Shown here is a 75-nucleotide sequence from Candidatus Izimoplasma sp. HR1, a member of the family "c-di-GMP-I riboswitch aptamer". The organism belongs to Candidatus Izemoplasma, within Bacteria. The match comes from Rfam's covariance-model search (55 bits).

RNA sequence: AGAAGAAAACGCCAAAAUUGGAGCGAUCCAAUGACGGAAAACUACAGGGUCUCCAGAAGACAGCCAGUUGCCUUU
Numbered sequence: 001a002g003a004a005g006a007a008a009a010c011g012c013c014a015a016a017a018u019u020g021g022a023g024c025g026a027u028c029c030a031a032u033g034a035c036g037g038a039a040a041a042c043u044a045c046a047g048g049g050u051c052u053c054c055a056g057a058a059g060a061c062a063g064c065c066a067g068u069u070g071c072c073u074u075u
Stems, first nucleotide, its partner, number of pairs: 012037002017032006040069004047065002049061003
GEMM was predicted in a large-scale screen for bacterial structured RNA regulatory elements. Genes associated with GEMM are involved in a diverse array of functions, including chemotaxis regulation, signal transduction, secretion and chitin. The base pairs follow the family's consensus structure, which is taken from published work.